[Rfam]
About this RNA: The family of this 65-nucleotide RNA is "Cyano-1 RNA". It is one of the family's seed sequences. The base pairs follow the family's consensus structure, which is taken from published work.
RNA sequence: GGGAUUGUGAGGGAAAACGCCUCACGGGGUGGAAACAAGGUCACACACCCGAGAGACGUUUUGGA
Numbered sequence: 001g002g003g004a005u006u007g008u009g010a011g012g013g014a015a016a017a018c019g020c021c022u023c024a025c026g027g028g029g030u031g032g033a034a035a036c037a038a039g040g041u042c043a044c045a046c047a048c049c050c051g052a053g054a055g056a057c058g059u060u061u062u063g064g065a
Base pairs, nucleotide, nucleotide: 015061016060017059018058019057022054023053026050027049028048029046030045031044